RNA sequence: UUCCGCAUCUCUGGAGAGCGGCAGCGGGCGCAUUGCAUGCGCCUUGCCUGCCCACCGAAGGGGCGCGCAUGUGACCGCCGCCGGCCUUGGAUGGUGCAACGGGACCUAUCCCAGCACCAUCCGCCGGCAGUGACGUCCGUGCAAUCUCUCAGGUAUCGAGGACAGAGGGGUCGGC
Numbered sequence: 001u002u003c004c005g006c007a008u009c010u011c012u013g014g015a016g017a018g019c020g021g022c023a024g025c026g027g028g029c030g031c032a033u034u035g036c037a038u039g040c041g042c043c044u045u046g047c048c049u050g051c052c053c054a055c056c057g058a059a060g061g062g063g064c065g066c067g068c069a070u071g072u073g074a075c076c077g078c079c080g081c082c083g084g085c086c087u088u089g090g091a092u093g094g095u096g097c098a099a100c101g102g103g104a105c106c107u108a109u110c111c112c113a114g115c116a117c118c119a120u121c122c123g124c125c126g127g128c129a130g131u132g133a134c135g136u137c138c139g140u141g142c143a144a145u146c147u148c149u150c151a152g153g154u155a156u157c158g159a160g161g162a163c164a165g166a167g168g169g170g171u172c173g174g175c
Base pairs, nucleotide, nucleotide: 006170008168009167010166011165012164013163020052021051022050023049054154055153056152057150058149061148062147063146067142068141069140070139071138
RNA: Glycine riboswitch aptamer
Organism: Robbsia andropogonis